This 94-nucleotide RNA from Pilibacter termitis belongs to the Rfam family "THF (Tetrahydrofolate) riboswitch aptamer".
Lineage of the source: Bacteria > Bacillati > Bacillota > Enterococcaceae > Pilibacter.
The literature on the family includes a 2010 paper in Chem Biol by Ames et al., "A eubacterial riboswitch class that senses the coenzyme tetrahydrofolate".
A search with the family's covariance model found it, with a score of 75 bits.
[Rfam]
RNA sequence: AACAGAGUAGAAGGUGCUGCGUUAAGUGUCGCAAGGAUGGGAUGUUGCCUGCGAACGAAAGCGUAAGCUGCGGUAGCCCUUCGCAUUCGCUGAU
Numbered sequence: 001a002a003c004a005g006a007g008u009a010g011a012a013g014g015u016g017c018u019g020c021g022u023u024a025a026g027u028g029u030c031g032c033a034a035g036g037a038u039g040g041g042a043u044g045u046u047g048c049c050u051g052c053g054a055a056c057g058a059a060a061g062c063g064u065a066a067g068c069u070g071c072g073g074u075a076g077c078c079c080u081u082c083g084c085a086u087u088c089g090c091u092g093a094u
Stems, first nucleotide, its partner, number of pairs: 001094001003092003010082005016077004020072003026056002029054005035049002040088005060069003
Dot-bracket structure: (.(((....(((((.(((((((...((.(((((.((...[[[[[...)))))))))...(((....)))))).))))))))).]]]]].))).)